[Rfam]
RNA sequence: GUGUCAUGGUCAUUGUUGACCGCUCAUACGACCCCUACAAUUGCAUUGCAACUUAUGCGGGAGUCGUAUAACAGUCAACAAAUACCCUCGACAU
Numbered sequence: 001g002u003g004u005c006a007u008g009g010u011c012a013u014u015g016u017u018g019a020c021c022g023c024u025c026a027u028a029c030g031a032c033c034c035c036u037a038c039a040a041u042u043g044c045a046u047u048g049c050a051a052c053u054u055a056u057g058c059g060g061g062a063g064u065c066g067u068a069u070a071a072c073a074g075u076c077a078a079c080a081a082a083u084a085c086c087c088u089c090g091a092c093a094u
Stems, first nucleotide, its partner, number of pairs: 001094005008086003013081008022072001024070001026069007034061003038057002043052001
Shown here is a 94-nucleotide RNA sequence from Medicago truncatula, a member of the family "MIR2587 microRNA precursor family". Rfam 15.1 lists 242 matches to the family in 3 species. The match comes from Rfam's covariance-model search (78 bits).